[Rfam]
RNA sequence: CGGUGAGGUAGAGGUGCGGUAUUUAAUAGUUUUUAGUUGAGCGUGAGCAGCGAUGAUGCUAAAAAGAAGGAAAUCCCGCCGAAGUGUGCAAUAUGCUCAAGUAUUGGAUGCUGGGUCUGCAGUUAAGAGCUGCAGGACUGUCUCGGUAAACUUCCCGGUUUACUCGAGGUGUGCUAUCUCUUUA
Numbered sequence: 001c002g003g004u005g006a007g008g009u010a011g012a013g014g015u016g017c018g019g020u021a022u023u024u025a026a027u028a029g030u031u032u033u034u035a036g037u038u039g040a041g042c043g044u045g046a047g048c049a050g051c052g053a054u055g056a057u058g059c060u061a062a063a064a065a066g067a068a069g070g071a072a073a074u075c076c077c078g079c080c081g082a083a084g085u086g087u088g089c090a091a092u093a094u095g096c097u098c099a100a101g102u103a104u105u106g107g108a109u110g111c112u113g114g115g116u117c118u119g120c121a122g123u124u125a126a127g128a129g130c131u132g133c134a135g136g137a138c139u140g141u142c143u144c145g146g147u148a149a150a151c152u153u154c155c156c157g158g159u160u161u162a163c164u165c166g167a168g169g170u171g172u173g174c175u176a177u178c179u180c181u182u183u184a
Stems, first nucleotide, its partner, number of pairs: 006179006016079004021074004031064007083112005089106006113139002116136008141169006
RNA: Lysine riboswitch aptamer
Organism: Bacillus mesophilum